Notes:
Shown here is a 100-nucleotide RNA sequence from Hymenochirus boettgeri, a member of the family "Small nucleolar RNA U6-53/MBII-28". A reference for the family is Huttenhofer et al. (2001), "RNomics: an experimental approach that identifies 201 candidates for novel, small, non-messenger RNAs in mouse", EMBO J. By type it is a C/D-box small nucleolar RNA. Taxonomically the source falls in Hymenochirus (Eukaryota, Dipnotetrapodomorpha, Tetrapoda, Pipinae).
[Rfam]
RNA sequence: AGCCAGUGAUGAUUUGCCAUGCUAAUACUGACGUGGUAAUUAGGAGCCUCUGCGCUCUCUAAGCUGACUGCGGCUGAGUGUAAGCAAAUAACUGAGGCUG
Numbered sequence: 001a002g003c004c005a006g007u008g009a010u011g012a013u014u015u016g017c018c019a020u021g022c023u024a025a026u027a028c029u030g031a032c033g034u035g036g037u038a039a040u041u042a043g044g045a046g047c048c049u050c051u052g053c054g055c056u057c058u059c060u061a062a063g064c065u066g067a068c069u070g071c072g073g074c075u076g077a078g079u080g081u082a083a084g085c086a087a088a089u090a091a092c093u094g095a096g097g098c099u100g
Base pairs, nucleotide, nucleotide: 001099002098003097004096041061042060043059044058